Rfam assigns this 599-nucleotide part of an RNA from Strongyloides ratti to the family "Eukaryotic large subunit ribosomal RNA".

[Rfam]
RNA sequence: GAAGACCCUGUUGAGCUUGACUCUAGCUAGGCAUUGUGAAGUGUCAUAUGAGGUGUAGCAUAGGUGGGAGUUAUUUUAUAACGAUCUUGAAAUACCACUACUUAUAUUGAUAUUUUACUUAGUUGAUUAAAUGGAAAUUUUAUAUAUUAAUUUAUAUAAUAAUUUUUGUAUUAAAUUAAUAUCUUUGAGAUAUUUAAUAAUCCACGUCAAUGACCAUGUCUGGCGGGGAGUUUGACUGGGGCGGUACAUCUAUCAAACUGUAACGUAGGUGUCCUAAGGCAAACUCAAAGAGGACAGAAACCUCUUGUAGAGUAAAAGGGCAAAAGUUUGCUUGAUCAUGAUUUUCAGUACGAAUACAGACCCUGAAAGGGUGGCCUAUCGAUCCUUUUGUAUUAGUAUGUUUCUAAAAAGAGGUGCCAGAAAAGUUACCACAGGGAUAACUGGCUUGUGGCAGCCAAGAGUCCAUAUCGACGUUGCUUUUUGAUCCUUCGAUGUCGGCUCUUCCUAUCAUUGCGAAGCAGAUUUCGCCAAGCGUUGGAUUGUUCACCCACUAAUAGGGAACGUGAGCUGGGUUUAGACCGUCGUGAGACAGGUUAGUU
Numbered sequence: 001g002a003a004g005a006c007c008c009u010g011u012u013g014a015g016c017u018u019g020a021c022u023c024u025a026g027c028u029a030g031g032c033a034u035u036g037u038g039a040a041g042u043g044u045c046a047u048a049u050g051a052g053g054u055g056u057a058g059c060a061u062a063g064g065u066g067g068g069a070g071u072u073a074u075u076u077u078a079u080a081a082c083g084a085u086c087u088u089g090a091a092a093u094a095c096c097a098c099u100a101c102u103u104a105u106a107u108u109g110a111u112a113u114u115u116u117a118c119u120u121a122g123u124u125g126a127u128u129a130a131a132u133g134g135a136a137a138u139u140u141u142a143u144a145u146a147u148u149a150a151u152u153u154a155u156a157u158a159a160u161a162a163u164u165u166u167u168g169u170a171u172u173a174a175a176u177u178a179a180u181a182u183c184u185u186u187g188a189g190a191u192a193u194u195u196a197a198u199a200a201u202c203c204a205c206g207u208c209a210a211u212g213a214c215c216a217u218g219u220c221u222g223g224c225g226g227g228g229a230g231u232u233u234g235a236c237u238g239g240g241g242c243g244g245u246a247c248a249u250c251u252a253u254c255a256a257a258c259u260g261u262a263a264c265g266u267a268g269g270u271g272u273c274c275u276a277a278g279g280c281a282a283a284c285u286c287a288a289a290g291a292g293g294a295c296a297g298a299a300a301c302c303u304c305u306u307g308u309a310g311a312g313u314a315a316a317a318g319g320g321c322a323a324a325a326g327u328u329u330g331c332u333u334g335a336u337c338a339u340g341a342u343u344u345u346c347a348g349u350a351c352g353a354a355u356a357c358a359g360a361c362c363c364u365g366a367a368a369g370g371g372u373g374g375c376c377u378a379u380c381g382a383u384c385c386u387u388u389u390g391u392a393u394u395a396g397u398a399u400g401u402u403u404c405u406a407a408a409a410a411g412a413g414g415u416g417c418c419a420g421a422a423a424a425g426u427u428a429c430c431a432c433a434g435g436g437a438u439a440a441c442u443g444g445c446u447u448g449u450g451g452c453a454g455c456c457a458a459g460a461g462u463c464c465a466u467a468u469c470g471a472c473g474u475u476g477c478u479u480u481u482u483g484a485u486c487c488u489u490c491g492a493u494g495u496c497g498g499c500u501c502u503u504c505c506u507a508u509c510a511u512u513g514c515g516a517a518g519c520a521g522a523u524u525u526c527g528c529c530a531a532g533c534g535u536u537g538g539a540u541u542g543u544u545c546a547c548c549c550a551c552u553a554a555u556a557g558g559g560a561a562c563g564u565g566a567g568c569u570g571g572g573u574u575u576a577g578a579c580c581g582u583c584g585u586g587a588g589a590c591a592g593g594u595u596a597g598u599u
Stems, first nucleotide, its partner, number of pairs: 007435004012431002014427005020231004027223007036118010046107007063099005070082002122211005132204004140159007175198005234247001235245003248270006273374002279331006285311002288306006312321002336360002341355004362371003385413005393407004444485001446483001448482001450478006459469002496571001497569004501563001502560005509534001513528005536550003540546001577595004581590003

NCBI's taxonomy places the organism under Eukaryota, Eumetazoa, Rhabditida, Strongyloididae, Strongyloides. It is one of the family's seed sequences.